A member of the RNA family "Bacterial RNase P class B" from Dellaglioa algida, 364 nucleotides long.
RNA sequence: AAUUUCGGGUAAUUGCGGUCUAUUAAGUUAGGCUGAGGAAAGUCCAUGCUUGCACAAGCUGAGAUGCUUGUAGUGUUCGUGCUUGGUGAAAAAAUAAGCCAAGGUACCUUCGGGUAACGGCGGAUAAAAUGACUAAGGCUUCGGCUAUGUCAAAGUAAUCUGUAAAGUGCCACAGAGACGAUACAAUAUUGGAAACGGUAUUGCUGGAACGCGGUAAACCCCACGAGUAGGCAACCCAAACUUUGGUAGGGGCGCUUCAUGACGGAAAUGAACAAAUCAUGGGGGCAGAUAAUAUCUGGAGAUAGAUGAUUACCACUGAUUUCAUCGCCUGAGAUGGAUGACGUACAAAACAUGGCUUAUAGAA
Numbered sequence: 001a002a003u004u005u006c007g008g009g010u011a012a013u014u015g016c017g018g019u020c021u022a023u024u025a026a027g028u029u030a031g032g033c034u035g036a037g038g039a040a041a042g043u044c045c046a047u048g049c050u051u052g053c054a055c056a057a058g059c060u061g062a063g064a065u066g067c068u069u070g071u072a073g074u075g076u077u078c079g080u081g082c083u084u085g086g087u088g089a090a091a092a093a094a095u096a097a098g099c100c101a102a103g104g105u106a107c108c109u110u111c112g113g114g115u116a117a118c119g120g121c122g123g124a125u126a127a128a129a130u131g132a133c134u135a136a137g138g139c140u141u142c143g144g145c146u147a148u149g150u151c152a153a154a155g156u157a158a159u160c161u162g163u164a165a166a167g168u169g170c171c172a173c174a175g176a177g178a179c180g181a182u183a184c185a186a187u188a189u190u191g192g193a194a195a196c197g198g199u200a201u202u203g204c205u206g207g208a209a210c211g212c213g214g215u216a217a218a219c220c221c222c223a224c225g226a227g228u229a230g231g232c233a234a235c236c237c238a239a240a241c242u243u244u245g246g247u248a249g250g251g252g253c254g255c256u257u258c259a260u261g262a263c264g265g266a267a268a269u270g271a272a273c274a275a276a277u278c279a280u281g282g283g284g285g286c287a288g289a290u291a292a293u294a295u296c297u298g299g300a301g302a303u304a305g306a307u308g309a310u311u312a313c314c315a316c317u318g319a320u321u322u323c324a325u326c327g328c329c330u331g332a333g334a335u336g337g338a339u340g341a342c343g344u345a346c347a348a349a350a351c352a353u354g355g356c357u358u359a360u361a362g363a364a
Stems, first nucleotide, its partner, number of pairs: 004364003007360001008314007016035006040358003044355005049231005054071006077226005082103006104118001105116004119221002122161004130152004137146003167219002169215003184203008235251003255284007286298005316343001321338006
For this family Rfam cites "The Ribonuclease P Database" (Brown, Nucleic Acids Res, 1999). A search with the family's covariance model found it, with a score of 323 bits.